[Rfam]
RNA sequence: GCACUCUUAGCUCAGAUUGGAUAGAGCGUCGGUCUUCUAAAUCGUUGGUCACAGGUUCGAGUCCUGUAGAGUGCA
Numbered sequence: 001g002c003a004c005u006c007u008u009a010g011c012u013c014a015g016a017u018u019g020g021a022u023a024g025a026g027c028g029u030c031g032g033u034c035u036u037c038u039a040a041a042u043c044g045u046u047g048g049u050c051a052c053a054g055g056u057u058c059g060a061g062u063c064c065u066g067u068a069g070a071g072u073g074c075a
Stems, first nucleotide, its partner, number of pairs: 001074007010027004030044004051067005

Shown here is a 75-nucleotide sequence from endosymbiont of Euscepes postfasciatus, a member of the family "tRNA". The family has 954 seed sequences and 5,335,975 matches in Rfam 15.1. Taxonomically the source falls in Gammaproteobacteria (Bacteria, Pseudomonadati, Pseudomonadota). It is annotated as a transfer RNA.